This 94-nucleotide sequence from Eoetvoesiella caeni belongs to the Rfam family "SAH (S-adenosyl-L-homocysteine) riboswitch aptamer". Its family is annotated with S-adenosylhomocysteine metabolic process and regulation of gene expression in the Gene Ontology. On this family, see Wang et al., Mol Cell 2008: "Riboswitches that sense S-adenosylhomocysteine and activate genes involved in coenzyme recycling".
RNA sequence: UUUCCUGAGGAGCGCUGCACCGGGACACAGGUAGGCCACGCGCCACCGCCCGCCAGGCUCAGGACAGUUUUUGUUUCAACGGCGCUCAUCAUCU
Numbered sequence: 001u002u003u004c005c006u007g008a009g010g011a012g013c014g015c016u017g018c019a020c021c022g023g024g025a026c027a028c029a030g031g032u033a034g035g036c037c038a039c040g041c042g043c044c045a046c047c048g049c050c051c052g053c054c055a056g057g058c059u060c061a062g063g064a065c066a067g068u069u070u071u072u073g074u075u076u077c078a079a080c081g082g083c084g085c086u087c088a089u090c091a092u093c094u
Stems, first nucleotide, its partner, number of pairs: 003064006021052004
Dot-bracket structure: ..((((((............((((........................))))......))))))..............................